[Rfam]
RNA: Bacterial small subunit ribosomal RNA, nucleotides 901 to 1486
RNA sequence: UGACGGGGGCCCGCACAAGCAGUGGAGUAUGUGGUUUAAUUCGAAGCAACGCGAAGAACCUUACCUGGUCUUGACAUCCCGGUGACCGGCAUAGAGAUAUGCCUUUCCCUUCGGGGACAGCGGUGACAGGUGGUGCAUGGUUGUCGUCAGCUCGUGUCGUGAGAUGUUGGGUUAAGUCCCGCAACGAGCGCAACCCUUAUUGUUAGUUGAUACAUUUAGUUGAUCACUCUAGCGAGACUGCCGUUGACAAAACGGAGGAAGGUGGGGACGACGUCAAAUCAUCAUGCCCCUUAUGACCAGGGCUACACACGUACUACAAUGGCAGACAUACAGAGGGAAGCAAAGCUGUGAGGCAGAGCAAAUCCCUAAAAGCUGUCCCAGUUCAGAUUGCAGGCUGCAACCCGCCUGCAUGAAGUCGGAAUUGCUAGUAAUCGCGGAUCAGCAUGCCGCGGUGAAUACGUUCCCGGGCCUUGUACACACCGCCCGUCACACCAUGAGAGCCGGUAAUGCCCGAAGUCCGUAGUCUAACCGCAAGGAGGACGCGGCCGAAGGCAGGACUGGUAAUUAGGGUGAAGUCGUAACAAGG
Numbered sequence: 001u002g003a004c005g006g007g008g009g010c011c012c013g014c015a016c017a018a019g020c021a022g023u024g025g026a027g028u029a030u031g032u033g034g035u036u037u038a039a040u041u042c043g044a045a046g047c048a049a050c051g052c053g054a055a056g057a058a059c060c061u062u063a064c065c066u067g068g069u070c071u072u073g074a075c076a077u078c079c080c081g082g083u084g085a086c087c088g089g090c091a092u093a094g095a096g097a098u099a100u101g102c103c104u105u106u107c108c109c110u111u112c113g114g115g116g117a118c119a120g121c122g123g124u125g126a127c128a129g130g131u132g133g134u135g136c137a138u139g140g141u142u143g144u145c146g147u148c149a150g151c152u153c154g155u156g157u158c159g160u161g162a163g164a165u166g167u168u169g170g171g172u173u174a175a176g177u178c179c180c181g182c183a184a185c186g187a188g189c190g191c192a193a194c195c196c197u198u199a200u201u202g203u204u205a206g207u208u209g210a211u212a213c214a215u216u217u218a219g220u221u222g223a224u225c226a227c228u229c230u231a232g233c234g235a236g237a238c239u240g241c242c243g244u245u246g247a248c249a250a251a252a253c254g255g256a257g258g259a260a261g262g263u264g265g266g267g268a269c270g271a272c273g274u275c276a277a278a279u280c281a282u283c284a285u286g287c288c289c290c291u292u293a294u295g296a297c298c299a300g301g302g303c304u305a306c307a308c309a310c311g312u313a314c315u316a317c318a319a320u321g322g323c324a325g326a327c328a329u330a331c332a333g334a335g336g337g338a339a340g341c342a343a344a345g346c347u348g349u350g351a352g353g354c355a356g357a358g359c360a361a362a363u364c365c366c367u368a369a370a371a372g373c374u375g376u377c378c379c380a381g382u383u384c385a386g387a388u389u390g391c392a393g394g395c396u397g398c399a400a401c402c403c404g405c406c407u408g409c410a411u412g413a414a415g416u417c418g419g420a421a422u423u424g425c426u427a428g429u430a431a432u433c434g435c436g437g438a439u440c441a442g443c444a445u446g447c448c449g450c451g452g453u454g455a456a457u458a459c460g461u462u463c464c465c466g467g468g469c470c471u472u473g474u475a476c477a478c479a480c481c482g483c484c485c486g487u488c489a490c491a492c493c494a495u496g497a498g499a500g501c502c503g504g505u506a507a508u509g510c511c512c513g514a515a516g517u518c519c520g521u522a523g524u525c526u527a528a529c530c531g532c533a534a535g536g537a538g539g540a541c542g543c544g545g546c547c548g549a550a551g552g553c554a555g556g557a558c559u560g561g562u563a564a565u566u567a568g569g570g571u572g573a574a575g576u577c578g579u580a581a582c583a584a585g586g
Stems, first nucleotide, its partner, number of pairs: 001477002003474003007471007015461002019425005024317001026315008034306002040055004064301007077126002079123003083119001088103006106117004129290002132288004138284002140279003143275001145273002150189006156165003168181004195267004200235007210224002213222002238258002241255005321377005327372001335366003340359002345354003384415001389410007431453007480585001482582001485578002490572004495567003500562006508554004516547001518545004523541004529536002